RNA sequence: UGUACAGAAAAACCCUUUAAAAUAAAGGGUUUAGAGAAGUCGUUACAAUAAUUCAGGGCCCCGUCUCGCGACGAGGCCCUUUCAUGGGAGAGGAGAAACCGGACGAAGAGCUUAUGGGGAACGUAAGUCUUCUCCGCGG
Dot-bracket structure: ..........(((((((((...)))))))))............................(((((...................)))))...........((((.((((.(((((.........)))))))))))))...
Numbered sequence: 001u002g003u004a005c006a007g008a009a010a011a012a013c014c015c016u017u018u019a020a021a022a023u024a025a026a027g028g029g030u031u032u033a034g035a036g037a038a039g040u041c042g043u044u045a046c047a048a049u050a051a052u053u054c055a056g057g058g059c060c061c062c063g064u065c066u067c068g069c070g071a072c073g074a075g076g077c078c079c080u081u082u083c084a085u086g087g088g089a090g091a092g093g094a095g096a097a098a099c100c101g102g103a104c105g106a107a108g109a110g111c112u113u114a115u116g117g118g119g120a121a122c123g124u125a126a127g128u129c130u131u132c133u134c135c136g137c138g139g
Stems, first nucleotide, its partner, number of pairs: 011031009060088005100136004105132004110128005